[Rfam]
Rfam assigns this 204-nucleotide RNA from Thalassarche chlororhynchos to the family "Small nucleolar RNA SNORA74".
RNA sequence: UCCAGUGGUAGUCAGCUGUCCAGAGCAGUACUGUGCCUGUGAUAGUGUUACACUGCUGGGAGAUAAAGAUCAGUCAUUUCUUCUGGCUGCUGUUGUCACCGUUCUGGGGACAGCUGAUGCCAAAAAAGAAGUGGCAUUGUGCUUCCCUGAGAGCGCGCUAAAGAUUUGCUUUCCCUCUUUAGAGCUAGUCUGGAAGCAUACAUA
Numbered sequence: 001u002c003c004a005g006u007g008g009u010a011g012u013c014a015g016c017u018g019u020c021c022a023g024a025g026c027a028g029u030a031c032u033g034u035g036c037c038u039g040u041g042a043u044a045g046u047g048u049u050a051c052a053c054u055g056c057u058g059g060g061a062g063a064u065a066a067a068g069a070u071c072a073g074u075c076a077u078u079u080c081u082u083c084u085g086g087c088u089g090c091u092g093u094u095g096u097c098a099c100c101g102u103u104c105u106g107g108g109g110a111c112a113g114c115u116g117a118u119g120c121c122a123a124a125a126a127a128g129a130a131g132u133g134g135c136a137u138u139g140u141g142c143u144u145c146c147c148u149g150a151g152a153g154c155g156c157g158c159u160a161a162a163g164a165u166u167u168g169c170u171u172u173c174c175c176u177c178u179u180u181a182g183a184g185c186u187a188g189u190c191u192g193g194a195a196g197c198a199u200a201c202a203u204a
Stems, first nucleotide, its partner, number of pairs: 001060009011051002015046006021039003068137001073135004078130005084122004090116001092114001097109001099107002139199008155185002159181006